The family of this 323-nucleotide RNA sequence from Bos taurus is "7SK RNA". It scores 262 bits against the family's covariance model. Taxonomically the source falls in Bos (Eukaryota, Dipnotetrapodomorpha, Eutheria, Laurasiatheria).

[Rfam]
Nucleotides: 323
Base pairs, nucleotide, nucleotide: 001108002107003106006101007100008099009098010097011096013093014092018090019089024087025086026085027084028083029082030081031080032079033078035074036073037070038069039068042067043066044065045064047061048060116171117170118168119167120166121165122139123138124137125136127135128134140162141161142160147158148157201269202268203267211259213257214256228246289323290322293318295316296315297314298311299310300309302308
Number, partner (000 for none) and nucleotide at each position: 001108g002107g003106a004000u005000a006101u007100g008099a009098g010097g011096g012000c013093g014092a015000u016000c017000u018090g019089g020000u021000u022000g023000c024087g025086a026085c027084a028083u029082c030081u031080g032079u033078c034000a035074c036073c037070c038069c039068a040000u041000u042067g043066a044065u045064c046000a047061c048060c049000a050000g051000g052000g053000u054000u055000g056000a057000u058000u059000c060048g061047g062000c063000u064045g065044a066043u067042c068039u069038g070037g071000c072000u073036g074035g075000c076000u077000a078033g079032g080031c081030a082029g083028g084027u085026g086025u087024c088000c089019c090018c091000u092014u093013c094000c095000u096011c097010c098009c099008u100007c101006a102000c103000c104000g105000c106003u107002c108001c109000a110000u111000g112000u113000g114000c115000a116171u117170c118168c119167c120166u121165c122139c123138c124137g125136a126000a127135g128134c129000u130000g131000c132000g133000c134128g135127c136125u137124c138123g139122g140162u141161c142160g143000a144000a145000g146000a147158g148157g149000c150000c151000g152000a153000c154000c155000a156000u157148c158147c159000c160142c161141g162140a163000u164000a165121g166120a167119g168118g169000a170117g171116g172000a173000c174000c175000g176000g177000u178000c179000u180000u181000u182000g183000g184000u185000c186000a187000a188000g189000g190000g191000u192000a193000u194000a195000c196000g197000a198000g199000u200000a201269g202268c203267u204000g205000u206000g207000c208000u209000c210000c211259c212000c213257u214256g215000c216000u217000a218000g219000a220000a221000c222000c223000u224000c225000c226000a227000a228246a229000c230000a231000a232000g233000c234000u235000c236000u237000c238000a239000a240000g241000a242000c243000u244000g245000u246228u247000a248000u249000u250000c251000u252000a253000a254000c255000a256214u257213a258000u259211g260000a261000u262000c263000u264000a265000u266000g267203a268202g269201c270000a271000a272000u273000g274000u275000c276000u277000u278000u279000a280000u281000u282000a283000a284000a285000a286000u287000a288000a289323a290322a291000a292000u293318a294000u295316u296315u297314u298311u299310a300309u301000c302308u303000a304000g305000g306000a307000u308302a309300a310299u311298a312000u313000u314297g315296a316295a317000c318293u319000a320000g321000g322290u323289u